[Rfam]
RNA sequence: AUAACAACAAUAACAAGUGAAACUUUAUAACAAGAACAACAGAUAACGGCUCUAACACAAUAACAACAAGAUGGUAGAGACGAAGCUAACUGAUUCUUUUGGAGAGGAGUUGUCGUCAGGGAAACCUGCGACAGUGUGAUAAGAAUAAAACUGCGGUAUUCAGCAGACACCACACUGAUCCAAGCAUCACCUCAUCGAUCAAAGGUAUCCGUUUGCUCUUAGCCCCCGAGUAGGGGGCACCUCCCGAUGCGUCCAGCCGGGAUGGGCUAAAAUAACAAUAACGGGCCCAAUACAAUAACAAUAAGAGCAGCGCACUAUCCUCUGGAAGGGAGCCUCGGCUCCCUUUCGCACAUCUGGACUUAUCAAAACUUUGCC
Dot-bracket structure: ..............................................((.((((......................)))).))..............(((((.........((...................(((................((((........))))........)))..................))..))))).................(((((.......)))))...................(.((((((((.................))))..................(..((.............(((((((((....))))))))).)).))))).)..................

A member of the RNA family "Pseudomonas sRNA CrcZ" from Azomonas agilis, 375 nucleotides long. Rfam 15.1 lists 127 matches to the family in 96 species. On this family, see Livny et al., Nucleic Acids Res 2006: "Identification of 17 Pseudomonas aeruginosa sRNAs and prediction of sRNA-encoding genes in 10 diverse pathogens using the bioinformatic tool sRNAPredict2". Rfam classes the family as a small RNA.